[Rfam]
The record is an 80-nucleotide sequence from Struthio camelus, which matches "Small nucleolar RNA U83B" in Rfam. Gene Ontology terms of the family: RNA processing and nucleolus. The base pairs follow the family's consensus structure. It is annotated as a C/D-box small nucleolar RNA. Lineage of the source: Eukaryota > Opisthokonta > Gnathostomata > Coelurosauria > Struthio camelus. About the family: U83B belongs to the C/D family of snoRNAs. U83B like U83A has no documented RNA target and they share the same host gene with the C/D box snoRNA U43 (RPL3).

RNA sequence: ACUGUUUAGUGACAGGCACAGGAGCAAGCACUGAGCGCCUGUGAGGGGUGGCUCCAUGUUGCCUUCCUUCUGAGAACAGU
Numbered sequence: 001a002c003u004g005u006u007u008a009g010u011g012a013c014a015g016g017c018a019c020a021g022g023a024g025c026a027a028g029c030a031c032u033g034a035g036c037g038c039c040u041g042u043g044a045g046g047g048g049u050g051g052c053u054c055c056a057u058g059u060u061g062c063c064u065u066c067c068u069u070c071u072g073a074g075a076a077c078a079g080u
Stems, first nucleotide, its partner, number of pairs: 001080005